[Rfam]
Purine riboswitch aptamer: a 101-nucleotide RNA sequence from Mycoplasma sp. Mirounga ES2805-ORL. Lineage of the source: Bacteria > Mollicutes > Mycoplasmatales > Mycoplasmataceae > Mycoplasma.

RNA sequence: GUAAUACCUUAAUAUUACCGCUAUUUAAUGUAUUUAAUAUGGGAAUACAGUCUCUACCAGAUUGCCCUAAACAAUCUGACAAAGUGAUAAUUUAAGGUCUU
Numbered sequence: 001g002u003a004a005u006a007c008c009u010u011a012a013u014a015u016u017a018c019c020g021c022u023a024u025u026u027a028a029u030g031u032a033u034u035u036a037a038u039a040u041g042g043g044a045a046u047a048c049a050g051u052c053u054c055u056a057c058c059a060g061a062u063u064g065c066c067c068u069a070a071a072c073a074a075u076c077u078g079a080c081a082a083a084g085u086g087a088u089a090a091u092u093u094a095a096g097g098u099c100u101u
Stems, first nucleotide, its partner, number of pairs: 019086004024082002029049007058078007
It scores 65 bits against the family's covariance model.